[Rfam]
RNA sequence: GGUGGUUCUCAGGUGACACACCUUAGAAUAGGGCUCCCUCCUCUCUGGUUCUGGGGUGCGUCACCUGAGAAUCACA
Number, nucleotide and partner (000 for none) at each position: 001g000002g075003u074004g000005g072006u071007u070008c069009u068010c067011a066012g065013g064014u063015g062016a061017c060018a000019c058020a057021c056022c055023u054024u000025a052026g051027a050028a049029u048030a000031g046032g045033g044034c000035u000036c000037c000038c000039u000040c000041c000042u000043c000044u033045c032046u031047g000048g029049u028050u027051c026052u025053g000054g023055g022056g021057u020058g019059c000060g017061u016062c015063a014064c013065c012066u011067g010068a009069g008070a007071a006072u005073c000074a003075c002076a000

This 76-nucleotide sequence from Myotis brandtii belongs to the Rfam family "mir-9223 microRNA precursor family". A search with the family's covariance model found it, with a score of 84 bits. The base pairs follow the family's consensus structure, which was predicted with RNAalifold.